[Rfam]
RNA sequence: UGGCUGUCGUGGUCAUAAUUGAAGAAGGCAAUUCAUUUGAGCUUGAGGCGUCGCUUCACACUCCACUUGAUCAUGUGUGCCUUGCUCGGAGUUUUGGGUCGUUCUUCGUACUCGUGUGUGUAAACCACGAUCGCUACGGGACGCUAAGCAAUGGAGGUGAACCUUGAGGGAAGCAAUUCUGCAGAGACACCUCCACCCAGGAUUGGCGAUGUGAGAUGACACCGUGACAAGAUAUGCGAAGUUUCGGGCUUGUCGAAUUGUCGACUUUUUU
Numbered sequence: 001u002g003g004c005u006g007u008c009g010u011g012g013u014c015a016u017a018a019u020u021g022a023a024g025a026a027g028g029c030a031a032u033u034c035a036u037u038u039g040a041g042c043u044u045g046a047g048g049c050g051u052c053g054c055u056u057c058a059c060a061c062u063c064c065a066c067u068u069g070a071u072c073a074u075g076u077g078u079g080c081c082u083u084g085c086u087c088g089g090a091g092u093u094u095u096g097g098g099u100c101g102u103u104c105u106u107c108g109u110a111c112u113c114g115u116g117u118g119u120g121u122a123a124a125c126c127a128c129g130a131u132c133g134c135u136a137c138g139g140g141a142c143g144c145u146a147a148g149c150a151a152u153g154g155a156g157g158u159g160a161a162c163c164u165u166g167a168g169g170g171a172a173g174c175a176a177u178u179c180u181g182c183a184g185a186g187a188c189a190c191c192u193c194c195a196c197c198c199a200g201g202a203u204u205g206g207c208g209a210u211g212u213g214a215g216a217u218g219a220c221a222c223c224g225u226g227a228c229a230a231g232a233u234a235u236g237c238g239a240a241g242u243u244u245c246g247g248g249c250u251u252g253u254c255g256a257a258u259u260g261u262c263g264a265c266u267u268u269u270u271u
Base pairs, nucleotide, nucleotide: 001015002014003013004012021268022267023266024265027262028261029260030259031258032257033256034255035253036252040250041249042248043247044246045245046244047243048242049241051239052238053237066231067230068229071227072226073225074224075223077222078221079220081215082214083213084212085211086209087208088207090204091203092202093201094200095199096198097197098196103141104140105139107138108137109136110135112130113129114128115127116126118125119124144148152195153194154193155192156191157190158189163186164185165184170179171178172177

This 271-nucleotide RNA from Exophiala mesophila belongs to the Rfam family "Fungal signal recognition particle RNA". NCBI's taxonomy places the organism under Eukaryota, Opisthokonta, Pezizomycotina, Herpotrichiellaceae, Exophiala. The match comes from Rfam's covariance-model search (140 bits). On this family, see Rosenblad et al., RNA Biol 2009: "Kinship in the SRP RNA family".